[Rfam]
Shown here is a 370-nucleotide RNA from Aspergillus versicolor, a member of the family "RNase MRP". The match comes from Rfam's covariance-model search (105 bits). Taxonomically the source falls in Aspergillus versicolor (Eukaryota, Dikarya, Ascomycota, Aspergillus). RNase MRP is an enzymatically active ribonucleoprotein with two distinct roles in eukaryotes. By type it is a ribozyme.
RNA sequence: UCCUCGCUCAAAGGAUCGCAUUCAAAGCUCACACACAGAGAAUUCCAUAAUUCUCUCCUCUUCUCAUCCGAGAAGAGCCCGCUUUGGGAGAAAGUCCCCGGACACCCUGUCCUUUUCUUUUUUUACAAAGUCGGUCAGGCAAUGCGGAAACGCGCCGCCAUAAAAGCAAUUUGAUAGCGGCUUACUGCCCUAUUCCCUCCCGGUGCCGAGUCAAUGCCCGACGCCCCCCCGGGGUGGACACAAUGGUGGUGUGGACUGGUGUCGGAGAGGGGUUUAUUGGGUUGCCUUUCGUCGUGUUUGGAUAGUCAUGCGAUUGCUCGGUUCUGUGUUGGAACUGGGUAACUCAAUGGGGCUCAUUCUUGAGGCGAGG
Number, nucleotide and partner (000 for none) at each position: 001u000002c370003c369004u368005c367006g366007c365008u363009c362010a361011a360012a000013g000014g315015a314016u313017c312018g311019c310020a000021u000022u088023c086024a085025a084026a083027g082028c081029u000030c000031a000032c000033a000034c000035a000036c000037a000038g055039a054040g053041a052042a051043u050044u000045c000046c000047a000048u000049a000050a043051u042052u041053c040054u039055c038056u000057c000058c000059u000060c000061u000062u000063c000064u000065c000066a000067u000068c000069c000070g000071a000072g000073a000074a000075g000076a000077g000078c000079c000080c000081g028082c027083u026084u025085u024086g023087g000088g022089a000090g000091a000092a000093a354094g353095u000096c352097c351098c350099c349100g000101g000102a000103c000104a000105c000106c000107c000108u000109g136110u000111c134112c133113u000114u000115u000116u000117c000118u000119u000120u000121u000122u000123u000124u000125a000126c000127a000128a000129a000130g000131u000132c000133g112134g111135u000136c109137a000138g000139g000140c000141a000142a000143u000144g000145c000146g000147g000148a000149a000150a000151c000152g000153c000154g000155c000156c000157g000158c000159c000160a000161u000162a000163a000164a000165a000166g000167c000168a000169a000170u000171u000172u000173g000174a000175u000176a000177g000178c000179g000180g000181c000182u000183u000184a000185c000186u000187g000188c000189c000190c000191u000192a000193u000194u000195c000196c000197c000198u000199c000200c000201c000202g000203g000204u000205g000206c000207c000208g000209a000210g286211u000212c284213a000214a000215u000216g282217c281218c280219c279220g278221a277222c000223g000224c000225c272226c271227c270228c269229c000230c267231g000232g000233g000234g000235u000236g000237g000238a000239c000240a000241c000242a000243a000244u000245g000246g000247u000248g000249g000250u000251g000252u000253g000254g263255a262256c261257u000258g000259g000260u000261g256262u255263c254264g000265g000266a000267g230268a000269g228270g227271g226272g225273u000274u000275u000276a000277u221278u220279g219280g218281g217282u216283u000284g212285c000286c210287u000288u000289u000290c000291g000292u000293c000294g000295u000296g000297u000298u000299u000300g000301g000302a000303u000304a000305g000306u000307c000308a000309u000310g019311c018312g017313a016314u015315u014316g000317c339318u338319c337320g336321g335322u334323u333324c332325u000326g000327u000328g000329u000330u000331g000332g324333a323334a322335c321336u320337g319338g318339g317340u000341a000342a000343c000344u000345c000346a000347a000348u000349g099350g098351g097352g096353c094354u093355c000356a000357u000358u000359c000360u011361u010362g009363a008364g000365g007366c006367g005368a004369g003370g002